[Rfam]
Rfam assigns this 126-nucleotide RNA sequence from Arabidopsis lyrata to the family "MIR408 microRNA precursor family". On this family, see Sunkar and Zhu, Plant Cell 2004: "Novel and stress-regulated microRNAs and other small RNAs from Arabidopsis". Rfam 15.1 lists 299 matches to the family in 186 species. The organism belongs to Arabidopsis lyrata, within Eukaryota.

RNA sequence: AGAGAGAGAAAAGAGGGAGCCAGGGAAGAGGCAGUGCAUGGGUAGAGACAAAACAGAGUCGUUUAAUGUUUUAGUAAACUCAAUCCAUGCUCUGCUUGUUCCCUGUCUCUCUCUAUCAUUACCACU
Number, nucleotide and partner (000 for none) at each position: 001a000002g000003a000004g000005a000006g000007a000008g000009a000010a000011a000012a000013g000014a000015g000016g000017g109018a108019g107020c000021c105022a104023g103024g102025g101026a100027a099028g000029a097030g096031g095032c094033a093034g092035u000036g090037c089038a088039u087040g086041g085042g000043u000044a000045g081046a080047g000048a000049c000050a000051a000052a000053a000054c000055a000056g000057a000058g000059u000060c000061g000062u000063u000064u000065a000066a000067u000068g000069u000070u000071u000072u000073a000074g000075u000076a000077a000078a000079c000080u046081c045082a000083a000084u000085c041086c040087a039088u038089g037090c036091u000092c034093u033094g032095c031096u030097u029098g000099u027100u026101c025102c024103c023104u022105g021106u000107c019108u018109c017110u000111c000112u000113c000114u000115a000116u000117c000118a000119u000120u000121a000122c000123c000124a000125c000126u000